[Rfam]
RNA: Pseudomonas rpsL leader
RNA sequence: UGGCGGGGCUAUGGCUUGACUGGGUGCAUCAGUCUCUUUAGACUCAUGCACCCCUAAAUUUGGCAGGGCGCGUGCCCUGCCAUUUUGCUUUCCUAGCAGGGCAAUAGCGUCGAAAGACAACAGUGGAGCAUAUAGA
Numbered sequence: 001u002g003g004c005g006g007g008g009c010u011a012u013g014g015c016u017u018g019a020c021u022g023g024g025u026g027c028a029u030c031a032g033u034c035u036c037u038u039u040a041g042a043c044u045c046a047u048g049c050a051c052c053c054c055u056a057a058a059u060u061u062g063g064c065a066g067g068g069c070g071c072g073u074g075c076c077c078u079g080c081c082a083u084u085u086u087g088c089u090u091u092c093c094u095a096g097c098a099g100g101g102c103a104a105u106a107g108c109g110u111c112g113a114a115a116g117a118c119a120a121c122a123g124u125g126g127a128g129c130a131u132a133u134a135g136a
Stems, first nucleotide, its partner, number of pairs: 004018004009013001022053003026049004031044001034041002061082009103133001107129002109118003